[Rfam]
RNA sequence: CCAGUCGGCACCUCGUAUGGGGCUCGUCCGAGUCCGCUCAGCGGCCGGAUACAGGAGCCCGCGAUGACCCGGCGGGUUGGAGGAGCUGUCCGUG
Numbered sequence: 001c002c003a004g005u006c007g008g009c010a011c012c013u014c015g016u017a018u019g020g021g022g023c024u025c026g027u028c029c030g031a032g033u034c035c036g037c038u039c040a041g042c043g044g045c046c047g048g049a050u051a052c053a054g055g056a057g058c059c060c061g062c063g064a065u066g067a068c069c070c071g072g073c074g075g076g077u078u079g080g081a082g083g084a085g086c087u088g089u090c091c092g093u094g
Base pairs, nucleotide, nucleotide: 014063015062016061020060021059022058023057024056025055026050027049028048034044035043036042037041

Record summary:
Rfam assigns this 94-nucleotide RNA sequence to the family "malK-III RNA". The family's RNA type in Rfam is cis-regulatory element. It is one of the family's seed sequences.